RNA sequence: UAGAUCACCUCAAAUGGAGACACUGAUGAUUGUCGUGUUCAUAAGUGCUACUCUUUGGGGUUGUCUUG
Number, nucleotide and partner (000 for none) at each position: 001u000002a000003g000004a064005u063006c000007a061008c060009c059010u058011c057012a000013a000014a055015u000016g053017g052018a000019g049020a000021c047022a046023c045024u044025g000026a042027u041028g040029a000030u000031u000032g000033u000034c000035g000036u000037g000038u000039u000040c028041a027042u026043a000044a024045g023046u022047g021048c000049u019050a000051c000052u017053c016054u000055u014056u000057g011058g010059g009060g008061u007062u000063g005064u004065c000066u000067u000068g000
The family of this 68-nucleotide RNA sequence from Etheostoma spectabile is "miR-430 microRNA precursor family". Rfam links the family to the GO terms miRNA-mediated post-transcriptional gene silencing and RISC complex. Rfam 15.1 lists 24,817 matches to the family in 105 species. A reference for the family is Giraldez et al. (2005), "MicroRNAs regulate brain morphogenesis in zebrafish", Science.